[Rfam]
RNA sequence: GACAAUAAACGUUGUUUGAAAUAAAUAUUUCGGACCCGGGGGCGGUACCCGGCAUCUCCACCAAAUAUAACUAUUUUCAAGAUUCUUACUUAUGGGGAUGAAAUAGCUUCGACGGGUAUAAUAAAGAAACAAUUUUUGUCCGGUCUGAUCACGCCGUAAAAUGAUCUAAAUAGAAAUGCCAAUGAUAACAAGGCAUCUGUAAAUUAUGCAAACGUAGCAAACGAUAAUUUUGCUUUUGCUGCAGCAGCAUAA
Numbered sequence: 001g002a003c004a005a006u007a008a009a010c011g012u013u014g015u016u017u018g019a020a021a022u023a024a025a026u027a028u029u030u031c032g033g034a035c036c037c038g039g040g041g042g043c044g045g046u047a048c049c050c051g052g053c054a055u056c057u058c059c060a061c062c063a064a065a066u067a068u069a070a071c072u073a074u075u076u077u078c079a080a081g082a083u084u085c086u087u088a089c090u091u092a093u094g095g096g097g098a099u100g101a102a103a104u105a106g107c108u109u110c111g112a113c114g115g116g117u118a119u120a121a122u123a124a125a126g127a128a129a130c131a132a133u134u135u136u137u138g139u140c141c142g143g144u145c146u147g148a149u150c151a152c153g154c155c156g157u158a159a160a161a162u163g164a165u166c167u168a169a170a171u172a173g174a175a176a177u178g179c180c181a182a183u184g185a186u187a188a189c190a191a192g193g194c195a196u197c198u199g200u201a202a203a204u205u206a207u208g209c210a211a212a213c214g215u216a217g218c219a220a221a222c223g224a225u226a227a228u229u230u231u232g233c234u235u236u237u238g239c240u241g242c243a244g245c246a247g248c249a250u251a252a
Stems, first nucleotide, its partner, number of pairs: 001140005014130004026118003030115003036052005053100007141156004

A member of the RNA family "permuted transfer-messenger RNA" from Rickettsiales bacterium Ac37b, 252 nucleotides long. For this family Rfam cites "tmRDB (tmRNA database)" (Zwieb et al., Nucleic Acids Res, 2003). A search with the family's covariance model found it, with a score of 142 bits. Rfam describes the family as follows. Bacterial tmRNA, also known as 10Sa RNA or SsrA, is named for its dual tRNA and mRNA-like properties. Its role is to liberate the mRNA from a stalled ribosome. NCBI's taxonomy places the organism under Bacteria, Pseudomonadati, Pseudomonadota, Alphaproteobacteria, Rickettsiales.